[Rfam]
RNA: Fluoride riboswitch aptamer (crcB RNA motif)
Organism: Caballeronia sp. SBC1
RNA sequence: AUUGACGUCGGAGAUGGCAUUCCUCCGCAACCGCCCGCAACGGGCUGAUGAUGCCUACAGGCCU
Numbered sequence: 001a002u003u004g005a006c007g008u009c010g011g012a013g014a015u016g017g018c019a020u021u022c023c024u025c026c027g028c029a030a031c032c033g034c035c036c037g038c039a040a041c042g043g044g045c046u047g048a049u050g051a052u053g054c055c056u057a058c059a060g061g062c063c064u
Stems, first nucleotide, its partner, number of pairs: 010026004016055006033045004